[Rfam]
The record is a 102-nucleotide sequence from Geosporobacter ferrireducens, which matches "Purine riboswitch aptamer" in Rfam. Rfam's curators write: Riboswitches are metabolite binding domains within certain messenger RNAs that serve as precision sensors for their corresponding targets. The organism belongs to Geosporobacter, within Bacteria. A search with the family's covariance model found it, with a score of 81 bits.
RNA sequence: AAAACAUAGAUGAAUUACCCUCAUAUAUUUCCGGGGAUAGGGCCCGGGCGUUUCUACAAGGCAACCGUAAAUUGUCUAACUAUGAGUGGGAUUAUCACAAGG
Numbered sequence: 001a002a003a004a005c006a007u008a009g010a011u012g013a014a015u016u017a018c019c020c021u022c023a024u025a026u027a028u029u030u031c032c033g034g035g036g037a038u039a040g041g042g043c044c045c046g047g048g049c050g051u052u053u054c055u056a057c058a059a060g061g062c063a064a065c066c067g068u069a070a071a072u073u074g075u076c077u078a079a080c081u082a083u084g085a086g087u088g089g090g091a092u093u094a095u096c097a098c099a100a101g102g
Stems, first nucleotide, its partner, number of pairs: 018088001020086006030048006059077006